[Rfam]
RNA sequence: CGCGUCCGGCUCGUGGACGCCUGUGCCCAUCCAAGCCCACUCCCGGUUAGUCUGGCGCCGUGCGGCCCUCCCGCCCGGCGUUGGGGCACCGCAUAGCCGACAGCCGUCGCACCUUCAGGGAGCCCUUACAUG
Numbered sequence: 001c002g003c004g005u006c007c008g009g010c011u012c013g014u015g016g017a018c019g020c021c022u023g024u025g026c027c028c029a030u031c032c033a034a035g036c037c038c039a040c041u042c043c044c045g046g047u048u049a050g051u052c053u054g055g056c057g058c059c060g061u062g063c064g065g066c067c068c069u070c071c072c073g074c075c076c077g078g079c080g081u082u083g084g085g086g087c088a089c090c091g092c093a094u095a096g097c098c099g100a101c102a103g104c105c106g107u108c109g110c111a112c113c114u115u116c117a118g119g120g121a122g123c124c125c126u127u128a129c130a131u132g
Stems, first nucleotide, its partner, number of pairs: 061093004068086004096110002099108003